[Rfam]
RNA sequence: GCCGGUCCUCGGUAGUGGCUCCCGGGUACGCGCGAAAGCGCCCCCGAGGGCCUCGAUCGAAGGCCGGG
Numbered sequence: 001g002c003c004g005g006u007c008c009u010c011g012g013u014a015g016u017g018g019c020u021c022c023c024g025g026g027u028a029c030g031c032g033c034g035a036a037a038g039c040g041c042c043c044c045c046g047a048g049g050g051c052c053u054c055g056a057u058c059g060a061a062g063g064c065c066g067g068g
Stems, first nucleotide, its partner, number of pairs: 002067006009060005017052005023046004030041003
Dot-bracket structure: .((((((.(((((...(((((.((((...(((......))).)))).)))))...))))).)))))).
Rfam assigns this 68-nucleotide sequence from Kineococcus xinjiangensis to the family "Actino-pnp RNA".
Lineage of the source: Bacteria > Bacillati > Actinomycetes > Kineosporiales > Kineococcus.